[Rfam]
RNA sequence: UUGGCAGCCGUGGAGACUGAAGCCCUCUUUUUAUCCACAGAACAGGUCCAGCACAGGGAGUGCAGGCUUCCCCCAGACUGCCCCAGCAAUGUGCCUCAACCCUGACCUGAAGGGACCACUUCUAGGGAUGACAGGGGAUUCAGUCUCCAUGCUCAUUCAAUUCUUGGCCUCU
Numbered sequence: 001u002u003g004g005c006a007g008c009c010g011u012g013g014a015g016a017c018u019g020a021a022g023c024c025c026u027c028u029u030u031u032u033a034u035c036c037a038c039a040g041a042a043c044a045g046g047u048c049c050a051g052c053a054c055a056g057g058g059a060g061u062g063c064a065g066g067c068u069u070c071c072c073c074c075a076g077a078c079u080g081c082c083c084c085a086g087c088a089a090u091g092u093g094c095c096u097c098a099a100c101c102c103u104g105a106c107c108u109g110a111a112g113g114g115a116c117c118a119c120u121u122c123u124a125g126g127g128a129u130g131a132c133a134g135g136g137g138a139u140u141c142a143g144u145c146u147c148c149a150u151g152c153u154c155a156u157u158c159a160a161u162u163c164u165u166g167g168c169c170u171c172u
Base pairs, nucleotide, nucleotide: 002159003158004157007153011149012148013147014146015145016144017143018142019141020140021139024137025136026135027134028133031131032130033129034128035127038104039103040102051094052093053092054091055090056082057081059079060078107125108124109123111121112120113119